The record is a 108-nucleotide RNA sequence from Plutella xylostella, which matches "mir-8517 microRNA precursor family" in Rfam. The source organism's lineage runs through Eukaryota, Arthropoda, Insecta, Pterygota and Plutella.
RNA sequence: UUAUAGGACGCUUUACCAAUUGAACUGUUUUGUCACUCUCUGAAAGAGAACAAUUUGUUCUUUGACAGAGAGGGACAAAUUAGUUCAAAAGCUAAAGCGUCCCAUAAC
Number, nucleotide and partner (000 for none) at each position: 001u107002u106003a105004u104005a000006g102007g000008a000009c000010g000011c097012u096013u095014u094015a093016c000017c091018a000019a000020u088021u087022g086023a085024a084025c083026u082027g081028u000029u069030u068031u067032g066033u065034c064035a063036c000037u000038c000039u000040c000041u000042g000043a000044a000045a000046g000047a000048g000049a059050a058051c057052a056053a000054u000055u000056u052057g051058u050059u049060c000061u000062u000063u035064g034065a033066c032067a031068g030069a029070g000071a000072g000073g000074g000075a000076c000077a000078a000079a000080u000081u027082a026083g025084u024085u023086c022087a021088a020089a000090a000091g017092c000093u015094a014095a013096a012097g011098c000099g000100u000101c000102c006103c000104a004105u003106a002107a001108c000